Overview:
Small nucleolar RNA Z159/U59: an 85-nucleotide sequence from Populus trichocarpa. Lineage of the source: Eukaryota > Spermatophyta > Pentapetalae > rosids > Populus. Its family is annotated with RNA processing and nucleolus in the Gene Ontology. The family's RNA type in Rfam is C/D-box small nucleolar RNA. The family is grouped with related families in Rfam's "SNORD59 clan". A search with the family's covariance model found it, with a score of 63 bits. For this family Rfam cites "The high diversity of snoRNAs in plants: identification and comparative study of 120 snoRNA genes from Oryza sativa" (Chen et al., Nucleic Acids Res, 2003). The family has 10 seed sequences and 1,401 matches in Rfam 15.1.
RNA sequence: GCCUCUAAUGAUGAUGCUUAUUAUACUUUCGUUGUUCCGAGACUUUCCGUGCGGAAAUAUUUUUGGAGACCUGAACUGAAGAGGC
Number, nucleotide and partner (000 for none) at each position: 001g000002c000003c083004u082005c081006u080007a000008a000009u000010g000011a000012u000013g000014a000015u000016g000017c000018u000019u000020a000021u000022u000023a000024u000025a000026c000027u000028u000029u000030c000031g000032u000033u000034g000035u000036u000037c000038c000039g000040a000041g000042a000043c000044u000045u000046u000047c000048c000049g000050u000051g000052c000053g000054g000055a000056a000057a000058u000059a000060u000061u000062u000063u000064u000065g000066g000067a000068g000069a000070c000071c000072u000073g000074a000075a000076c000077u000078g000079a000080a006081g005082a004083g003084g000085c000